[Rfam]
RNA sequence: GGGUGUUAGCUGCAUGCGGCAGCGGGACAGGUACAUCGCGCUGGUCGGGCCGCCACG
Numbered sequence: 001g002g003g004u005g006u007u008a009g010c011u012g013c014a015u016g017c018g019g020c021a022g023c024g025g026g027a028c029a030g031g032u033a034c035a036u037c038g039c040g041c042u043g044g045u046c047g048g049g050c051c052g053c054c055a056c057g
Base pairs, nucleotide, nucleotide: 005028006027007026009023010022011021039057040056042055043054044053045052
RNA: nhaA-I RNA